[Rfam]
RNA: skipping-rope RNA
RNA sequence: AUCAUUUGAGAAGCAGGAAAGGGGAAAGGCACCCUGCGCUCCUUAGGGAACCUGAUAUGAUGGAUACGCCGCCCAUCCAAGUGUU
Numbered sequence: 001a002u003c004a005u006u007u008g009a010g011a012a013g014c015a016g017g018a019a020a021g022g023g024g025a026a027a028g029g030c031a032c033c034c035u036g037c038g039c040u041c042c043u044u045a046g047g048g049a050a051c052c053u054g055a056u057a058u059g060a061u062g063g064a065u066a067c068g069c070c071g072c073c074c075a076u077c078c079a080a081g082u083g084u085u
Stems, first nucleotide, its partner, number of pairs: 001085001003083006013037005028070003039054001040049003059077005